[Rfam]
RNA sequence: GCAAGAUCUGGAGAUGACAUUCCUCCAUAACCGCCCUUCAAGGCUGAUGAUGUCUACGUAACC
Numbered sequence: 001g002c003a004a005g006a007u008c009u010g011g012a013g014a015u016g017a018c019a020u021u022c023c024u025c026c027a028u029a030a031c032c033g034c035c036c037u038u039c040a041a042g043g044c045u046g047a048u049g050a051u052g053u054c055u056a057c058g059u060a061a062c063c
Stems, first nucleotide, its partner, number of pairs: 010026004016054006033044003
RNA: Fluoride riboswitch aptamer (crcB RNA motif)